[Rfam]
RNA sequence: ACUCAACACUAUAUUCUUUAAGAGGGAUGAGUCUGAGUUGUAAAAGCGCGCCGUCUUUGAACGGAUUCUUGAUCAGCUCGUUAGUCCUAUGAUUUAUUUUAAGGAGUUU
Number, nucleotide and partner (000 for none) at each position: 001a000002c000003u000004c000005a000006a000007c000008a000009c000010u000011a000012u000013a000014u000015u000016c000017u000018u000019u000020a000021a000022g000023a000024g088025g087026g086027a085028u084029g000030a000031g000032u000033c000034u000035g079036a078037g077038u076039u075040g000041u000042a000043a000044a070045a069046g068047c000048g000049c000050g000051c064052c063053g062054u061055c000056u000057u000058u000059g000060a000061a054062c053063g052064g051065a000066u000067u000068c046069u045070u044071g000072a000073u000074c000075a039076g038077c037078u036079c035080g000081u000082u000083a000084g028085u027086c026087c025088u024089a000090u000091g000092a000093u000094u000095u000096a000097u000098u000099u000100u000101a000102a000103g000104g000105a000106g000107u000108u000109u000
This 109-nucleotide sequence from Leeuwenhoekiella blandensis belongs to the Rfam family "6S-Flavo RNA". The sequence is in the family's curated seed alignment.